This 131-nucleotide RNA from Pseudolactococcus hodotermopsidis belongs to the Rfam family "FMN riboswitch aptamer (RFN element)". A search with the family's covariance model found it, with a score of 76 bits.

RNA sequence: AAUGGUCUUCAGGGCGGGGGUCGUUUCCCCACUGGUGGUUAAAGUCCAUGAAGCUUAUCGAAUUCUUGGUAGGCCCGAACUUGUGAAAAUCAAGUACCAACUGUUAAAGUCAGGAUAAAGAGGAGGCAAGA
Numbered sequence: 001a002a003u004g005g006u007c008u009u010c011a012g013g014g015c016g017g018g019g020g021u022c023g024u025u026u027c028c029c030c031a032c033u034g035g036u037g038g039u040u041a042a043a044g045u046c047c048a049u050g051a052a053g054c055u056u057a058u059c060g061a062a063u064u065c066u067u068g069g070u071a072g073g074c075c076c077g078a079a080c081u082u083g084u085g086a087a088a089a090u091c092a093a094g095u096a097c098c099a100a101c102u103g104u105u106a107a108a109g110u111c112a113g114g115a116u117a118a119a120g121a122g123g124a125g126g127c128a129a130g131a
Base pairs, nucleotide, nucleotide: 003129005127006126007125008124009123010122017029018028019027031110032109033099034098035049036048037047038046044097045096053074054073079095080094081093082092083091101113102112103111